Shown here is a 94-nucleotide RNA from Oryza punctata, a member of the family "Small nucleolar RNA Z256".
RNA sequence: AUCUGCCAAUCAUGCUGACAUCAUCCGCUCAGGCUUGGCUAACUGGCCUCCCCGAGUACACCAUCAACAGUUGGGCUGAGUUGACAGCUCAGUU
Numbered sequence: 001a002u003c004u005g006c007c008a009a010u011c012a013u014g015c016u017g018a019c020a021u022c023a024u025c026c027g028c029u030c031a032g033g034c035u036u037g038g039c040u041a042a043c044u045g046g047c048c049u050c051c052c053c054g055a056g057u058a059c060a061c062c063a064u065c066a067a068c069a070g071u072u073g074g075g076c077u078g079a080g081u082u083g084a085c086a087g088c089u090c091a092g093u094u
Stems, first nucleotide, its partner, number of pairs: 003092003007087001

The organism belongs to Oryza, within Eukaryota. The base pairs follow the family's consensus structure. Rfam classes the family as a C/D-box small nucleolar RNA. Rfam links the family to the GO terms nucleolus and RNA processing.